[Rfam]
The family of this 139-nucleotide RNA sequence from Peptoclostridium acidaminophilum is "Glycine riboswitch aptamer". The family is grouped with related families in Rfam's "Glycine riboswitch clan".

RNA sequence: AGACGAUACUCUGGAGAGACCAUAUAAGGCACCGAAGGAGCAAAUUUAAUUGAGAUCUUUAUAUAAAUAAAAAAGCUCAUCCCUUUUUUAGAUCAAGCGAUUAAAUGAAUCUCUCAGGUAAAAGGACAGAGAACUGAAU
Numbered sequence: 001a002g003a004c005g006a007u008a009c010u011c012u013g014g015a016g017a018g019a020c021c022a023u024a025u026a027a028g029g030c031a032c033c034g035a036a037g038g039a040g041c042a043a044a045u046u047u048a049a050u051u052g053a054g055a056u057c058u059u060u061a062u063a064u065a066a067a068u069a070a071a072a073a074a075g076c077u078c079a080u081c082c083c084u085u086u087u088u089u090a091g092a093u094c095a096a097g098c099g100a101u102u103a104a105a106u107g108a109a110u111c112u113c114u115c116a117g118g119u120a121a122a123a124g125g126a127c128a129g130a131g132a133a134c135u136g137a138a139u
Stems, first nucleotide, its partner, number of pairs: 007133001009131005020029002031119003034115002038113003044106009